[Rfam]
RNA sequence: CCUUGGUCCGAGUGCAGUGGUGUUUACAACUAAUUGAUCACAACCAAUUACAGAUUCCUUUGUUCCUUCUCCACACCCACUGCUUCACUUAACCAGCCUUAA
Dot-bracket structure: ..(((((..((..(.(((((.(.....(((.((.........................)).)))...........))))))....)..)).)))))......